The family of this 178-nucleotide RNA from Hungatella hathewayi is "Lysine riboswitch aptamer". The literature on the family includes a 2003 paper in Genes Dev by Sudarsan et al., "An mRNA structure in bacteria that controls gene expression by binding lysine".
[Rfam]
RNA sequence: UAAUAAAGUAGAGGUUGCGUUGAUUAUGAGUAUUCUGCCUGAUGCAUCAGGGUGCAUGUGAGGGUGGAGGAAAGGAUGAGACGCCGAAGGACGGUACGGCCCGGGACGUAUCUGUUCUGGGCAUAUGAUGAAGAAUCAUAUGACUGUCAUCCUGCAUGGAUGGGGCGCUGCUUGAAGA
Numbered sequence: 001u002a003a004u005a006a007a008g009u010a011g012a013g014g015u016u017g018c019g020u021u022g023a024u025u026a027u028g029a030g031u032a033u034u035c036u037g038c039c040u041g042a043u044g045c046a047u048c049a050g051g052g053u054g055c056a057u058g059u060g061a062g063g064g065u066g067g068a069g070g071a072a073a074g075g076a077u078g079a080g081a082c083g084c085c086g087a088a089g090g091a092c093g094g095u096a097c098g099g100c101c102c103g104g105g106a107c108g109u110a111u112c113u114g115u116u117c118u119g120g121g122c123a124u125a126u127g128a129u130g131a132a133g134a135a136u137c138a139u140a141u142g143a144c145u146g147u148c149a150u151c152c153u154g155c156a157u158g159g160a161u162g163g164g165g166c167g168c169u170g171c172u173u174g175a176a177g178a
Stems, first nucleotide, its partner, number of pairs: 006173006017084005025076001033069008088118007095110004119145002122142008147163006